[Rfam]
RNA sequence: UUAGCAACAAUAGCGCCAGAACUUGAGCUUGCGCGGGGAAGAAUCUGAAGGAGCACGACGCUUCGGAUUCACGGCAGCAUCAAGUUGACGAGGUGGAGGUGUUCGAAAUGUUCGGCGGGGACCUCCCGGUGAUACACCACAGCCGUAAACUCGAAACGGAAAAUGAACGGGCGACCGUUCACACAACGUUUCCAGUGGGUGUUAG
Numbered sequence: 001u002u003a004g005c006a007a008c009a010a011u012a013g014c015g016c017c018a019g020a021a022c023u024u025g026a027g028c029u030u031g032c033g034c035g036g037g038g039a040a041g042a043a044u045c046u047g048a049a050g051g052a053g054c055a056c057g058a059c060g061c062u063u064c065g066g067a068u069u070c071a072c073g074g075c076a077g078c079a080u081c082a083a084g085u086u087g088a089c090g091a092g093g094u095g096g097a098g099g100u101g102u103u104c105g106a107a108a109u110g111u112u113c114g115g116c117g118g119g120g121a122c123c124u125c126c127c128g129g130u131g132a133u134a135c136a137c138c139a140c141a142g143c144c145g146u147a148a149a150c151u152c153g154a155a156a157c158g159g160a161a162a163a164u165g166a167a168c169g170g171g172c173g174a175c176c177g178u179u180c181a182c183a184c185a186a187c188g189u190u191u192c193c194a195g196u197g198g199g200u201g202u203u204a205g
Base pairs, nucleotide, nucleotide: 020086021085022084023083024082025081026080029077030076031075032074095126096125097124098123099122103115104114105113106112127145128144129143130141131140150195151194153192154191155190156189164181165180166179167178168177169176170175